[Rfam]
RNA sequence: CGGGACGCUCGGGCAAUCGCGCGGUGAGAUGUAAUGUCCACCUCGAGGAAAGUCCGGGCUCCACAGCACAGGAUGGUCGAUAACGUCGACUCAGGGUAACCUGCAGGCUAGUGCCACAGAAAAAAGACCGCCUUUUACGAGGUAAGGGUGAAAAGGUGAGGUAAGAGCUCACCAGUAUCUCAGGUGACUGAGAUAGCUUGGUAAACCCCAUUCGGAGCAAGGUCAAACAGAGCAUGAAGUAGGCUGUGCGUCGAAAUGCUCGGGUAGGCUGCUUGAGCUCUACGGCAACGUAGGGCCUAGAUGGAUGAUUGCCACUUGUUGUACAAGUACAAAACCCGGCUCAUAGAGCGUCCCGUCCC
Numbered sequence: 001c002g003g004g005a006c007g008c009u010c011g012g013g014c015a016a017u018c019g020c021g022c023g024g025u026g027a028g029a030u031g032u033a034a035u036g037u038c039c040a041c042c043u044c045g046a047g048g049a050a051a052g053u054c055c056g057g058g059c060u061c062c063a064c065a066g067c068a069c070a071g072g073a074u075g076g077u078c079g080a081u082a083a084c085g086u087c088g089a090c091u092c093a094g095g096g097u098a099a100c101c102u103g104c105a106g107g108c109u110a111g112u113g114c115c116a117c118a119g120a121a122a123a124a125a126g127a128c129c130g131c132c133u134u135u136u137a138c139g140a141g142g143u144a145a146g147g148g149u150g151a152a153a154a155g156g157u158g159a160g161g162u163a164a165g166a167g168c169u170c171a172c173c174a175g176u177a178u179c180u181c182a183g184g185u186g187a188c189u190g191a192g193a194u195a196g197c198u199u200g201g202u203a204a205a206c207c208c209c210a211u212u213c214g215g216a217g218c219a220a221g222g223u224c225a226a227a228c229a230g231a232g233c234a235u236g237a238a239g240u241a242g243g244c245u246g247u248g249c250g251u252c253g254a255a256a257u258g259c260u261c262g263g264g265u266a267g268g269c270u271g272c273u274u275g276a277g278c279u280c281u282a283c284g285g286c287a288a289c290g291u292a293g294g295g296c297c298u299a300g301a302u303g304g305a306u307g308a309u310u311g312c313c314a315c316u317u318g319u320u321g322u323a324c325a326a327g328u329a330c331a332a333a334a335c336c337c338g339g340c341u342c343a344u345a346g347a348g349c350g351u352c353c354c355g356u357c358c359c
Base pairs, nucleotide, nucleotide: 001355002354003353004352005351006350007349008348009347010346011344012313013312014311015310016309017308018307020045021044023042024041025040026039028037051341052340054339055338056337057336058335059217060216061215062214066249067248068247069246071213072212073211074210075209076090077089078088079087080086091105092103093102094101095100106208107207111206112205113202114201115200128147129146130143131142132141133140134139155173156172157171158170159169160168175197176195177194178193179192180191181190182189183188221270222269223268224267230261231260232259233258234257235256240254242252243251244250277296278295279294280293281292282291283290284289
RNA: Bacterial RNase P class A